[Rfam]
The record is a 319-nucleotide RNA sequence from Alphacoronavirus ferrumequini, which matches "Alphacoronavirus 3'UTR" in Rfam.
RNA sequence: AGUUAACUAGAUAUCAUUGAUUAUUACACUUCAAACCUAGUACAUACUCCAGUAAUGCGCACCCUAGCCGUCAGCUGAAAAGCGGGCUAGCAAGUGUAGGUGCUACUCUUAUACAGAAUGGUAGGCUCGUAUAUAAGCUAGUAUAAGUAGAGUUUAUAUAUAUUGCUGCGCUUAGACCAACGCAUAAGAUUCAUGACCUCCUAGAGUCAGGGUAAGUACAAAGAUCGCUUAGACGAGCCCACUGUGGAAGAACUGUCAUAGGAACUUGAUAUCUUAUAGUUAGUAGUUGCUAGUAGUUGCGGCUUUGAUAGGGAUACAC
Numbered sequence: 001a002g003u004u005a006a007c008u009a010g011a012u013a014u015c016a017u018u019g020a021u022u023a024u025u026a027c028a029c030u031u032c033a034a035a036c037c038u039a040g041u042a043c044a045u046a047c048u049c050c051a052g053u054a055a056u057g058c059g060c061a062c063c064c065u066a067g068c069c070g071u072c073a074g075c076u077g078a079a080a081a082g083c084g085g086g087c088u089a090g091c092a093a094g095u096g097u098a099g100g101u102g103c104u105a106c107u108c109u110u111a112u113a114c115a116g117a118a119u120g121g122u123a124g125g126c127u128c129g130u131a132u133a134u135a136a137g138c139u140a141g142u143a144u145a146a147g148u149a150g151a152g153u154u155u156a157u158a159u160a161u162a163u164u165g166c167u168g169c170g171c172u173u174a175g176a177c178c179a180a181c182g183c184a185u186a187a188g189a190u191u192c193a194u195g196a197c198c199u200c201c202u203a204g205a206g207u208c209a210g211g212g213u214a215a216g217u218a219c220a221a222a223g224a225u226c227g228c229u230u231a232g233a234c235g236a237g238c239c240c241a242c243u244g245u246g247g248a249a250g251a252a253c254u255g256u257c258a259u260a261g262g263a264a265c266u267u268g269a270u271a272u273c274u275u276a277u278a279g280u281u282a283g284u285a286g287u288u289g290c291u292a293g294u295a296g297u298u299g300c301g302g303c304u305u306u307g308a309u310a311g312g313g314a315u316a317c318a319c
Stems, first nucleotide, its partner, number of pairs: 108125005129161011165303006175288003182280002184277002191269003195265001199263005206257001208255003228237002238247002
Notes: Rfam's curators write: The 3' UTR of alphacoronaviruses consists of two small hairpins (PK-SL2) which can form an alternate conformation (PK-SL1) where the loop region of the second hairpin interacts with the stem of the first hairpin. PK-SL2 has been confirmed in HCoV-229E and HCoV-NL63 by in vitro structure probing experiments. Downstream of this pseudoknot lies the hypervariable region (HVR), which is supported by many covarying basepairs in alphacoronaviruses. Further, a conserved octanucleotide sequence is present in the HVR.